[Rfam]
RNA: mir-10 microRNA precursor family
Organism: Sarcophilus harrisii
RNA sequence: UGGUACAAACCCGUAGAUCCGAUCUUGUGGUGAAAUGGAUUUCACAAGCUCGUCUCUUUGGGUCUGUGUCAG
Numbered sequence: 001u002g003g004u005a006c007a008a009a010c011c012c013g014u015a016g017a018u019c020c021g022a023u024c025u026u027g028u029g030g031u032g033a034a035a036u037g038g039a040u041u042u043c044a045c046a047a048g049c050u051c052g053u054c055u056c057u058u059u060g061g062g063u064c065u066g067u068g069u070c071a072g
Base pairs, nucleotide, nucleotide: 002070003069004068005067006066007065010062011061012060015057016056017055020052021051022050024048025047026046027045028044029043